[Rfam]
Nucleotides: 397
Base pairs, nucleotide, nucleotide: 001393002392003391004390005389006388007387008386009385010384011382012344013343014342015341016340017339018338020035021034022033023032024031025030040380041379042378044377045376046375047374048373049211050210051209052208057276058275062207063206064205065204066203067081068080069079070078071077082096083094084093085092086091097202098201102200103199104196105195106194120142121141122138123137124136125135126134127133128132150168151167152166153165154164155163169191170189171188172187175184176183177182215300216299217298218297225291226290227289228288229287230286267282268281269280270279271278308327309326310325311324312323313322314321315320
Number, partner (000 for none) and nucleotide at each position: 001393g002392c003391g004390g005389a006388g007387a008386g009385g010384u011382g012344g013343a014342u015341g016340g017339c018338c019000g020035c021034g022033g023032g024031g025030c026000g027000a028000c029000a030025g031024c032023u033022c034021c035020g036000a037000g038000g039000a040380a041379a042378g043000u044377c045376c046375g047374g048373a049211c050210u051209c052208c053000a054000c055000a056000a057276g058275g059000a060000a061000a062207c063206g064205g065204u066203g067081c068080c069079g070078g071077g072000u073000a074000a075000c076000g077071c078070c079069c080068g081067g082096c083094g084093g085092g086091g087000g088000c089000a090000a091086c092085c093084c094083c095000a096082g097202g098201g099000a100000a101000a102200g103199c104196g105195c106194c107000a108000c109000a110000g111000a112000g113000a114000a115000u116000g117000a118000g119000a120142c121141c122138g123137c124136c125135g126134c127133g128132c129000u130000u131000u132128g133127c134126g135125c136124g137123g138122u139000a140000a141121g142120g143000g144000u145000g146000a147000a148000a149000c150168g151167g152166u153165g154164g155163g156000g157000u158000a159000a160000g161000a162000g163155c164154c165153c166152a167151c168150c169191g170189c171188g172187g173000g174000a175184c176183g177182g178000g179000c180000a181000a182177c183176c184175g185000g186000a187172c188171c189170g190000g191169c192000a193000c194106g195105g196104c197000a198000a199103g200102c201098c202097c203066c204065a205064c206063c207062g208052g209051g210050a211049g212000c213000a214000a215300u216299g217298c218297c219000g220000a221000a222000u223000a224000g225291g226290g227289a228288u229287c230286g231000c232000g233000c234000g235000c236000g237000g238000g239000c240000c241000g242000g243000u244000c245000g246000g247000g248000g249000a250000g251000a252000c253000c254000c255000g256000a257000a258000a259000c260000c261000g262000c263000c264000g265000c266000a267282g268281g269280g270279c271278c272000g273000g274000c275058c276057u277000u278271g279270g280269c281268c282267c283000c284000g285000a286230c287229g288228a289227u290226c291225c292000g293000g294000g295000u296000u297218g298217g299216c300215a301000g302000c303000u304000a305000g306000a307000g308327c309326c310325g311324c312323g313322g314321u315320g316000g317000c318000a319000a320315c321314a322313u323312c324311g325310c326309g327308g328000c329000a330000a331000g332000a333000g334000g335000a336000a337000u338018g339017g340016u341015c342014a343013u344012c345000c346000a347000u348000g349000g350000g351000g352000g353000c354000u355000u356000c357000g358000g359000u360000c361000c362000c363000c364000g365000g366000g367000a368000c369000a370000g371000a372000a373048u374047c375046c376045g377044g378042c379041u380040u381000a382011c383000a384010g385009c386008u387007u388006c389005u390004c391003c392002g393001c394000g395000c396000c397000u